[Rfam]
RNA: Bacterial RNase P class A
Organism: Parvibacter caecicola
RNA sequence: CGAGUGGGCCAGGCGGUCGCGCGCUAUCAAAGCGUGAGGAAAGUCCGGGCUCCUAAGGGCAAGAUGCCAGCUAACGGCUGGGCGGGGCAACCCGACGGAUCAGUGCCACAGAAAAGAAAACUCCCUUGCUUUCGGGCGAGAGAAAAGCUGAAACGGUGCGGUAAGAGCGCACCAGUGCGUCGGUAACGGCGCAGCUUGGCAAACCCCAUCUGGAGCAAGCGCAAAUAGGAACGCCAUACGGCUGCCCUUCCGUGCGUUCGGGUUGCGUGCUAAAGGCGGGCGGUGACGUCCGUCGCAGAUAAAUGGCCGUCCAACGACAGAACCCGGCUUAUCGGCCCGCUCGCCAU
Numbered sequence: 001c002g003a004g005u006g007g008g009c010c011a012g013g014c015g016g017u018c019g020c021g022c023g024c025u026a027u028c029a030a031a032g033c034g035u036g037a038g039g040a041a042a043g044u045c046c047g048g049g050c051u052c053c054u055a056a057g058g059g060c061a062a063g064a065u066g067c068c069a070g071c072u073a074a075c076g077g078c079u080g081g082g083c084g085g086g087g088c089a090a091c092c093c094g095a096c097g098g099a100u101c102a103g104u105g106c107c108a109c110a111g112a113a114a115a116g117a118a119a120a121c122u123c124c125c126u127u128g129c130u131u132u133c134g135g136g137c138g139a140g141a142g143a144a145a146a147g148c149u150g151a152a153a154c155g156g157u158g159c160g161g162u163a164a165g166a167g168c169g170c171a172c173c174a175g176u177g178c179g180u181c182g183g184u185a186a187c188g189g190c191g192c193a194g195c196u197u198g199g200c201a202a203a204c205c206c207c208a209u210c211u212g213g214a215g216c217a218a219g220c221g222c223a224a225a226u227a228g229g230a231a232c233g234c235c236a237u238a239c240g241g242c243u244g245c246c247c248u249u250c251c252g253u254g255c256g257u258u259c260g261g262g263u264u265g266c267g268u269g270c271u272a273a274a275g276g277c278g279g280g281c282g283g284u285g286a287c288g289u290c291c292g293u294c295g296c297a298g299a300u301a302a303a304u305g306g307c308c309g310u311c312c313a314a315c316g317a318c319a320g321a322a323c324c325c326g327g328c329u330u331a332u333c334g335g336c337c338c339g340c341u342c343g344c345c346a347u
Stems, first nucleotide, its partner, number of pairs: 001343010011332001012311007020036006041330003045327005050215004057247004062211005067081005082096001083094004097206002103204002105200003122143002125140006155173006175195001176193007219268004229259006238253004275294008